Rfam assigns this 80-nucleotide RNA to the family "SL669 non-coding RNA". It is annotated as a cis-regulatory element. Pairs were carried over by alignment from the consensus structure, which was predicted with RNAfold. The literature on the family includes a 2020 paper in Int J Mol Sci by Romero-Lopez and Berzal-Herranz, "The Role of the RNA-RNA Interactome in the Hepatitis C Virus Life Cycle".
RNA sequence: AUGACCCCCGGCGGCGGUCACGCAAUUUGGGUAAGGUCAUCGAUACCAUAACUUGCGGCCUCGCCGAUCUCAUGGGGUAU
Numbered sequence: 001a002u003g004a005c006c007c008c009c010g011g012c013g014g015c016g017g018u019c020a021c022g023c024a025a026u027u028u029g030g031g032u033a034a035g036g037u038c039a040u041c042g043a044u045a046c047c048a049u050a051a052c053u054u055g056c057g058g059c060c061u062c063g064c065c066g067a068u069c070u071c072a073u074g075g076g077g078u079a080u
Stems, first nucleotide, its partner, number of pairs: 003080001004078005009066005016060004021055002030047004036041001